MIR8565 microRNA precursor family: a 154-nucleotide RNA sequence from Amborella trichopoda. The organism belongs to Amborella, within Eukaryota. Rfam links the family to the GO terms RISC complex and miRNA-mediated post-transcriptional gene silencing.
RNA sequence: CCCACAUCCAUGUGUGUAGGACUCCAAAAGAUCAUUAUUCAAUUUGGUACAGAUCUCUAGAAAAGUUAUCACAUGGAUGUGAGACUUGAUUGUUUUAGAGAUCUGUGCCAAAUUUAAUGGUUAUCCUUUGGGGUCCUACACACAUGGGUGUGGA
Numbered sequence: 001c002c003c004a005c006a007u008c009c010a011u012g013u014g015u016g017u018a019g020g021a022c023u024c025c026a027a028a029a030g031a032u033c034a035u036u037a038u039u040c041a042a043u044u045u046g047g048u049a050c051a052g053a054u055c056u057c058u059a060g061a062a063a064a065g066u067u068a069u070c071a072c073a074u075g076g077a078u079g080u081g082a083g084a085c086u087u088g089a090u091u092g093u094u095u096u097a098g099a100g101a102u103c104u105g106u107g108c109c110a111a112a113u114u115u116a117a118u119g120g121u122u123a124u125c126c127u128u129u130g131g132g133g134u135c136c137u138a139c140a141c142a143c144a145u146g147g148g149u150g151u152g153g154a
Stems, first nucleotide, its partner, number of pairs: 002153012015140014030125003034121006041114022064091005069082005